[Rfam]
RNA sequence: GAAUUCAGCUGGAAAAGUCAUGAAUAUAAAAGUUGUAUAACUCAUCAAGAUCUAAAACUUCUAUUUUGGUCAUUUGUUCAUCCGACAAAGUGAUAAGAACAUUGUUCACAAAUUUUACAUAUCUCUCGUAUAGUUUCAUAUACUAUAUGAGAGAUAUGUAAGUUUUGUGAACAAUGUUACUAUCACUUUAUCGGAUGAAGAAAUGACCAAAAUAAAAGUUGUAGGUCUUGAUGAGUUCUACAACUUUUAUGUUCAUGACUUUUUGAGUUCAAAUC
Numbered sequence: 001g002a003a004u005u006c007a008g009c010u011g012g013a014a015a016a017g018u019c020a021u022g023a024a025u026a027u028a029a030a031a032g033u034u035g036u037a038u039a040a041c042u043c044a045u046c047a048a049g050a051u052c053u054a055a056a057a058c059u060u061c062u063a064u065u066u067u068g069g070u071c072a073u074u075u076g077u078u079c080a081u082c083c084g085a086c087a088a089a090g091u092g093a094u095a096a097g098a099a100c101a102u103u104g105u106u107c108a109c110a111a112a113u114u115u116u117a118c119a120u121a122u123c124u125c126u127c128g129u130a131u132a133g134u135u136u137c138a139u140a141u142a143c144u145a146u147a148u149g150a151g152a153g154a155u156a157u158g159u160a161a162g163u164u165u166u167g168u169g170a171a172c173a174a175u176g177u178u179a180c181u182a183u184c185a186c187u188u189u190a191u192c193g194g195a196u197g198a199a200g201a202a203a204u205g206a207c208c209a210a211a212a213u214a215a216a217a218g219u220u221g222u223a224g225g226u227c228u229u230g231a232u233g234a235g236u237u238c239u240a241c242a243a244c245u246u247u248u249a250u251g252u253u254c255a256u257g258a259c260u261u262u263u264u265g266a267g268u269u270c271a272a273a274u275c
Stems, first nucleotide, its partner, number of pairs: 014262008023253002026250002030246008039237004044232010056220005062214006069207007077199005083193003087189006094182002098178002101175012114162002117159006131145004136140001
Shown here is a 275-nucleotide sequence from Miscanthus lutarioriparius, a member of the family "MIR821 microRNA precursor family". Gene Ontology terms of the family: miRNA-mediated post-transcriptional gene silencing and RISC complex. The base pairs follow the family's consensus structure, which was predicted with RNAalifold. The source organism's lineage runs through Eukaryota, Embryophyta, Tracheophyta, Andropogoneae and Miscanthus. Rfam 15.1 lists 1,438 matches to the family in 13 species.